Coronavirus 3' UTR pseudoknot: a 61-nucleotide sequence from Glaucidium brasilianum. Pairs were carried over by alignment from the consensus structure, which is taken from published work. Rfam links the family to the GO term viral genome replication.
[Rfam]
RNA sequence: AUACUCUUGCACUAAACUUGUCCUCUAAUUCAAAUACUACGAGAAAUUUUGAAGUAUGGGA
Numbered sequence: 001a002u003a004c005u006c007u008u009g010c011a012c013u014a015a016a017c018u019u020g021u022c023c024u025c026u027a028a029u030u031c032a033a034a035u036a037c038u039a040c041g042a043g044a045a046a047u048u049u050u051g052a053a054g055u056a057u058g059g060g061a
Base pairs, nucleotide, nucleotide: 007042008041009040011038026056027055029053030052031051032050033049034048

It scores 37 bits against the family's covariance model.
About the family: Coronaviruses are plus-strand RNA viruses with ~30kb genomes.
Lineage of the source: Eukaryota > Metazoa > Dipnotetrapodomorpha > Strigiformes > Glaucidium.
A reference for the family is Williams et al. (1999), "A phylogenetically conserved hairpin-type 3' untranslated region pseudoknot functions in coronavirus RNA replication", J Virol.